[Rfam]
RNA: Streptomyces RNA 3202
Organism: Streptomyces resistomycificus
RNA sequence: CCAAGUCCCGCCGCAAUCCCCCCGGCGCCGGGACUCUCCGAGAGCCGGGCUUCGGCGCCCUCCCCCCGGGUGCCGAGGUCCGGCUCGUCU
Numbered sequence: 001c002c003a004a005g006u007c008c009c010g011c012c013g014c015a016a017u018c019c020c021c022c023c024g025g026c027g028c029c030g031g032g033a034c035u036c037u038c039c040g041a042g043a044g045c046c047g048g049g050c051u052u053c054g055g056c057g058c059c060c061u062c063c064c065c066c067c068g069g070g071u072g073c074c075g076a077g078g079u080c081c082g083g084c085u086c087g088u089c090u
Stems, first nucleotide, its partner, number of pairs: 005034006012027003042086010053075008